[Rfam]
RNA: TPP riboswitch aptamer (THI element)
RNA sequence: CAGAAGCCCCCGGGGAGCGCAGGAGCGCUGAGAGUGCGGCCGGACGACCCGUCGUCCCACCCGCAGACCCGUGGAACCUGACCUGGUUCGCACCAGCGUAGGGAGCAGGGCACUCGUCGCCGG
Numbered sequence: 001c002a003g004a005a006g007c008c009c010c011c012g013g014g015g016a017g018c019g020c021a022g023g024a025g026c027g028c029u030g031a032g033a034g035u036g037c038g039g040c041c042g043g044a045c046g047a048c049c050c051g052u053c054g055u056c057c058c059a060c061c062c063g064c065a066g067a068c069c070c071g072u073g074g075a076a077c078c079u080g081a082c083c084u085g086g087u088u089c090g091c092a093c094c095a096g097c098g099u100a101g102g103g104a105g106c107a108g109g110g111c112a113c114u115c116g117u118c119g120c121c122g123g
Stems, first nucleotide, its partner, number of pairs: 006111004011071004017028004035065005077102004083096004